[Rfam]
RNA sequence: GAUCCUCCGCCGAGUCCGCAAGCGUUGGCCGAUCACGGCCCUUGCGGAGCCGGGGACCCACCGAAACACCGGGGUGAAUCCGCACCCCCGCACGCCAUGUGCGGGGUCGCGGUAGGGCCACUUCCACGCCCGAACCCGACAGCUAACCCGGUAGGCGGACUGGAAGAACCU
Numbered sequence: 001g002a003u004c005c006u007c008c009g010c011c012g013a014g015u016c017c018g019c020a021a022g023c024g025u026u027g028g029c030c031g032a033u034c035a036c037g038g039c040c041c042u043u044g045c046g047g048a049g050c051c052g053g054g055g056a057c058c059c060a061c062c063g064a065a066a067c068a069c070c071g072g073g074g075u076g077a078a079u080c081c082g083c084a085c086c087c088c089c090g091c092a093c094g095c096c097a098u099g100u101g102c103g104g105g106g107u108c109g110c111g112g113u114a115g116g117g118c119c120a121c122u123u124c125c126a127c128g129c130c131c132g133a134a135c136c137c138g139a140c141a142g143c144u145a146a147c148c149c150g151g152u153a154g155g156c157g158g159a160c161u162g163g164a165a166g167a168a169c170c171u
Base pairs, nucleotide, nucleotide: 008157009156010155011154015048016047017046018045019044020043021042022041049152050151051150052149053148054147059071072137073136074135080112081111082110083109115131116130117129118128

Rfam assigns this 171-nucleotide sequence from Actinomadura verrucosospora to the family "c-di-AMP riboswitch aptamer (ydaO/yuaA leader)". Lineage of the source: Bacteria > Actinomycetota > Actinomycetes > Streptosporangiales > Actinomadura. The match comes from Rfam's covariance-model search (66 bits).